[Rfam]
RNA sequence: UUGCACAACUAGGGGAGCCUAUAUUGAUAGGCUGAGAAAGAGAUGUUAUCUCUGACCCUCAUAACCUGAUGUAGGUAAUGCUACCGUAGGGAAGUUUGUGUUUUAGUUU
Number, nucleotide and partner (000 for none) at each position: 001u000002u000003g000004c000005a000006c000007a096008a095009c094010u093011a059012g058013g057014g056015g000016a000017g032018c031019c030020u029021a028022u000023a000024u000025u000026g000027a000028u021029a020030g019031g018032c017033u000034g000035a000036g000037a000038a000039a053040g052041a051042g050043a049044u000045g000046u000047u000048a000049u043050c042051u041052c040053u039054g000055a000056c014057c013058c012059u011060c000061a000062u000063a000064a000065c090066c089067u088068g087069a000070u000071g084072u083073a082074g081075g000076u000077a000078a000079u000080g000081c074082u073083a072084c071085c000086g000087u068088a067089g066090g065091g000092a000093a010094g009095u008096u007097u000098g000099u000100g000101u000102u000103u000104u000105a000106g000107u000108u000109u000

The record is a 109-nucleotide sequence from Anoxybacter fermentans, which matches "TPP riboswitch aptamer (THI element)" in Rfam. Pairs were carried over by alignment from the consensus structure, which is taken from published work. Lineage of the source: Bacteria > Bacillati > Clostridia > Halanaerobiales > Anoxybacter.